[Rfam]
RNA sequence: CGAGUAUCUCUGCCGAAUUGACGUGUCGGGACGUCAAGCCGGGGAACCAUGUUUUCUGGGGUGAAUUCCCUUGGUCCAGUCGCGUCCGCACGGGCGCUCGCUGCGCCAAGGGGUAGGGCUACUUCCGGCCCGAAUCCGUCAGCUAACUCGGUAGGCAGUAGAAGAGGGAAGAA
Numbered sequence: 001c002g003a004g005u006a007u008c009u010c011u012g013c014c015g016a017a018u019u020g021a022c023g024u025g026u027c028g029g030g031a032c033g034u035c036a037a038g039c040c041g042g043g044g045a046a047c048c049a050u051g052u053u054u055u056c057u058g059g060g061g062u063g064a065a066u067u068c069c070c071u072u073g074g075u076c077c078a079g080u081c082g083c084g085u086c087c088g089c090a091c092g093g094g095c096g097c098u099c100g101c102u103g104c105g106c107c108a109a110g111g112g113g114u115a116g117g118g119c120u121a122c123u124u125c126c127g128g129c130c131c132g133a134a135u136c137c138g139u140c141a142g143c144u145a146a147c148u149c150g151g152u153a154g155g156c157a158g159u160a161g162a163a164g165a166g167g168g169a170a171g172a173a
Base pairs, nucleotide, nucleotide: 011157012156013155014154018037019036020035021034022033023032024031038152039151040150041149042148043147048058049057059137060136061135067113068112069111070110071109072108073107074106075105116131117130118129119128

Record summary:
This 173-nucleotide RNA sequence from Nakamurella antarctica belongs to the Rfam family "c-di-AMP riboswitch aptamer (ydaO/yuaA leader)". Taxonomically the source falls in Nakamurella (Bacteria, Bacillati, Actinomycetota, Nakamurellaceae).